[Rfam]
RNA sequence: CGCUUACAGCCAGACUUGCCUGUAGUUGCUUAUCUGGGCUUUUGCCCAGUGCACUCUUCUAUAGGCAGGCCAGCAUCAGUUUGGGCGGUUGGAUAAAGGUCUCUGUCAUGUACCUCUCUUCGGGGAGAACUUAUAGGGGAGACGACAUGCAACCAGCCCAGACUGAGGUCCGCGCAUCUGCUAGGAUGCUGGCGUAAUGGCUGUAAGCGGCCCGUCUUGAAACACGG
Numbered sequence: 001c002g003c004u005u006a007c008a009g010c011c012a013g014a015c016u017u018g019c020c021u022g023u024a025g026u027u028g029c030u031u032a033u034c035u036g037g038g039c040u041u042u043u044g045c046c047c048a049g050u051g052c053a054c055u056c057u058u059c060u061a062u063a064g065g066c067a068g069g070c071c072a073g074c075a076u077c078a079g080u081u082u083g084g085g086c087g088g089u090u091g092g093a094u095a096a097a098g099g100u101c102u103c104u105g106u107c108a109u110g111u112a113c114c115u116c117u118c119u120u121c122g123g124g125g126a127g128a129a130c131u132u133a134u135a136g137g138g139g140a141g142a143c144g145a146c147a148u149g150c151a152a153c154c155a156g157c158c159c160a161g162a163c164u165g166a167g168g169u170c171c172g173c174g175c176a177u178c179u180g181c182u183a184g185g186a187u188g189c190u191g192g193c194g195u196a197a198u199g200g201c202u203g204u205a206a207g208c209g210g211c212c213c214g215u216c217u218u219g220a221a222a223c224a225c226g227g
Base pairs, nucleotide, nucleotide: 001209002208003207004206005205006204007203008202009201010200011199012198017067018066019065020064021063022062023061024060071191072190073189074188075187076186077185212227213226214225215224
A member of the RNA family "Eukaryotic large subunit ribosomal RNA" from Dothidotthia symphoricarpi, 227 nucleotides of a longer RNA. The source organism's lineage runs through Eukaryota, Opisthokonta, Fungi, Pleosporales and Dothidotthia symphoricarpi. Its family is annotated with structural constituent of ribosome and ribosome in the Gene Ontology. The match comes from Rfam's covariance-model search (3102 bits).